[Rfam]
RNA sequence: CACCGAGUCCGAGGUUCCGGAAUGGCCCGGGACCUGGUGCGAAAGGGA
Numbered sequence: 001c002a003c004c005g006a007g008u009c010c011g012a013g014g015u016u017c018c019g020g021a022a023u024g025g026c027c028c029g030g031g032a033c034c035u036g037g038u039g040c041g042a043a044a045g046g047g048a
Stems, first nucleotide, its partner, number of pairs: 013034008
raiA-hairpin RNA: a 48-nucleotide RNA from Streptomyces sp. TOR3209. By type it is a small RNA.